[Rfam]
RNA: Small nucleolar RNA SNORA48
RNA sequence: UGUCCCUGUCAUAGGUAGAGUGGCAUCCGGUUCAUGGUGCCCAUCUCAUAUCAGCCAGAGACAAAGCAACCCCUUGUUUAUCCCAGCUUAGCUUUUGGUCUGUGUCCAUGCCUUGGAGACAUGG
Numbered sequence: 001u002g003u004c005c006c007u008g009u010c011a012u013a014g015g016u017a018g019a020g021u022g023g024c025a026u027c028c029g030g031u032u033c034a035u036g037g038u039g040c041c042c043a044u045c046u047c048a049u050a051u052c053a054g055c056c057a058g059a060g061a062c063a064a065a066g067c068a069a070c071c072c073c074u075u076g077u078u079u080a081u082c083c084c085a086g087c088u089u090a091g092c093u094u095u096u097g098g099u100c101u102g103u104g105u106c107c108a109u110g111c112c113u114u115g116g117a118g119a120c121a122u123g124g
Stems, first nucleotide, its partner, number of pairs: 001063004006058003012053001014051001018047003022041006075119001077117004091111002096108003100104001